The family of this 104-nucleotide RNA sequence from Paraburkholderia sp. DHOC27 is "Burkholderia sRNA 1". On this family, see Sass et al., Sci Rep 2017: "Identification of small RNAs abundant in Burkholderia cenocepacia biofilms reveal putative regulators with a potential role in carbon and iron metabolism". The organism belongs to Paraburkholderia, within Bacteria. A search with the family's covariance model found it, with a score of 78 bits.
[Rfam]
Nucleotides: 104
Base pairs, nucleotide, nucleotide: 002035003034004033005032009031013029014028015027016026017024039066046063047062049061050060051059052058053057068101069100070099071098072097073096074095075094076093077092078091079090080089081088
Number, partner (000 for none) and nucleotide at each position: 001000a002035g003034u004033u005032c006000u007000g008000a009031u010000g011000a012000a013029c014028a015027c016026c017024g018000a019000a020000u021000u022000u023000g024017c025000a026016g027015g028014u029013g030000g031009a032005g033004a034003a035002c036000g037000a038000g039066g040000a041000g042000a043000c044000a045000a046063u047062g048000a049061g050060g051059c052058g053057c054000u055000a056000a057053g058052c059051g060050c061049c062047c063046a064000g065000a066039c067000g068101a069100a070099a071098g072097c073096g074095c075094u076093g077092u078091u079090g080089g081088a082000u083000u084000g085000a086000u087000a088081u089080c090079c091078a092077a093076c094075a095074g096073c097072g098071c099070u100069u101068u102000u103000u104000a